[Rfam]
RNA sequence: UCACUUCACAUUCAGCGCAGGGCGACUAUAUCCGUCGGUGCCGGUCCAAGGGAAACCGAGGGCCGGAUAUGGCGAUAAAUUGCGGUGUGCAAUAGAUACAGCGGACCCGGGGGCAGUACCCGGCGGCUCCACCACCUCCUCUGGCGUUGCAGGGGAAAUGACGGGGCCGAACUAGGAUCGACGUGUAUUGAAAAGCAUCGUUUUUGCUCGGGCUGAGUAACCCGUUCAAGGCUCAAAACCCACAAGUGCCAACGACAACGAAGCACUUGCUCUCGCUGCGUAAUUCUAGGGGCUAACGCCCUGAAGUUACAAGGCUUUGAGCACGGUUCGGACCGAACCGGGUAACAGAAUCGGAAACC
Numbered sequence: 001u002c003a004c005u006u007c008a009c010a011u012u013c014a015g016c017g018c019a020g021g022g023c024g025a026c027u028a029u030a031u032c033c034g035u036c037g038g039u040g041c042c043g044g045u046c047c048a049a050g051g052g053a054a055a056c057c058g059a060g061g062g063c064c065g066g067a068u069a070u071g072g073c074g075a076u077a078a079a080u081u082g083c084g085g086u087g088u089g090c091a092a093u094a095g096a097u098a099c100a101g102c103g104g105a106c107c108c109g110g111g112g113g114c115a116g117u118a119c120c121c122g123g124c125g126g127c128u129c130c131a132c133c134a135c136c137u138c139c140u141c142u143g144g145c146g147u148u149g150c151a152g153g154g155g156a157a158a159u160g161a162c163g164g165g166g167c168c169g170a171a172c173u174a175g176g177a178u179c180g181a182c183g184u185g186u187a188u189u190g191a192a193a194a195g196c197a198u199c200g201u202u203u204u205u206g207c208u209c210g211g212g213c214u215g216a217g218u219a220a221c222c223c224g225u226u227c228a229a230g231g232c233u234c235a236a237a238a239c240c241c242a243c244a245a246g247u248g249c250c251a252a253c254g255a256c257a258a259c260g261a262a263g264c265a266c267u268u269g270c271u272c273u274c275g276c277u278g279c280g281u282a283a284u285u286c287u288a289g290g291g292g293c294u295a296a297c298g299c300c301c302u303g304a305a306g307u308u309a310c311a312a313g314g315c316u317u318u319g320a321g322c323a324c325g326g327u328u329c330g331g332a333c334c335g336a337a338c339c340g341g342g343u344a345a346c347a348g349a350a351u352c353g354g355a356a357a358c359c
Stems, first nucleotide, its partner, number of pairs: 041066007071208005082201007097187003101184003107123005124169007209224004214235003324340004333353001335351001
Alphaproteobacteria transfer-messenger RNA: a 359-nucleotide RNA from Altererythrobacter sp. TH136. The family's RNA type in Rfam is non-coding RNA gene. Clan: tRNA clan. Lineage of the source: Bacteria > Pseudomonadota > Sphingomonadales > Erythrobacteraceae > Altererythrobacter.